[Rfam]
RNA sequence: GAGAUAUCCUUAUGGGGCAGGAUUUGCUUCAGUAGGGCUUUGGUGUUCACUGAGUCUGCCCCUUGAGUGUGUUGCU
Numbered sequence: 001g002a003g004a005u006a007u008c009c010u011u012a013u014g015g016g017g018c019a020g021g022a023u024u025u026g027c028u029u030c031a032g033u034a035g036g037g038c039u040u041u042g043g044u045g046u047u048c049a050c051u052g053a054g055u056c057u058g059c060c061c062c063u064u065g066a067g068u069g070u071g072u073u074g075c076u
Stems, first nucleotide, its partner, number of pairs: 001075001003073005009067004014062006021056003029053005035047002037044002

Rfam assigns this 76-nucleotide sequence from Pipistrellus kuhlii to the family "mir-9229 microRNA precursor family". It scores 80 bits against the family's covariance model. The base pairs follow the family's consensus structure, which was predicted with RNAalifold. The source organism's lineage runs through Eukaryota, Gnathostomata, Mammalia, Vespertilionidae and Pipistrellus.